[Rfam]
RNA sequence: UCCAUGGUGACGUGGAAUCUGAAGGAAGUCGGCGGCAAAACUCUGGUCUGACGAAUAGAAACUACAUAUAAGGCAUGUGCUUGUGGGUAAGUUUGCAUAACAUAACGAAGCCCAAAACUAUUCGAAACAAGUGGUGUAAAUGUAGCAGAUAGAUGGAGUGAAAGAUUGUGUU
Number, nucleotide and partner (000 for none) at each position: 001u016002c015003c014004a013005u012006g011007g000008u000009g000010a000011c006012g005013u004014g003015g002016a001017a000018u000019c000020u000021g000022a000023a000024g000025g000026a000027a000028g172029u000030c170031g169032g000033c000034g000035g000036c164037a000038a000039a000040a159041c158042u157043c156044u155045g154046g150047u149048c148049u147050g146051a000052c000053g000054a000055a000056u000057a000058g000059a000060a000061a000062c145063u144064a143065c142066a141067u140068a000069u000070a000071a000072g000073g137074c136075a135076u000077g000078u133079g132080c131081u130082u129083g128084u127085g113086g112087g111088u110089a000090a000091g106092u105093u104094u000095g000096c000097a000098u000099a000100a000101c000102a000103u000104a093105a092106c091107g000108a000109a000110g088111c087112c086113c085114a000115a000116a000117a000118c000119u000120a000121u000122u000123c000124g000125a000126a000127a084128c083129a082130a081131g080132u079133g078134g000135u075136g074137u073138a000139a000140a067141u066142g065143u064144a063145g062146c050147a049148g048149a047150u046151a000152g000153a000154u045155g044156g043157a042158g041159u040160g000161a000162a000163a000164g036165a000166u000167u000168g000169u031170g030171u000172u028
The family of this 172-nucleotide RNA sequence from Clostridium tagluense is "Group II catalytic intron D1-D4-3". Pairs were carried over by alignment from the consensus structure. It scores 153 bits against the family's covariance model.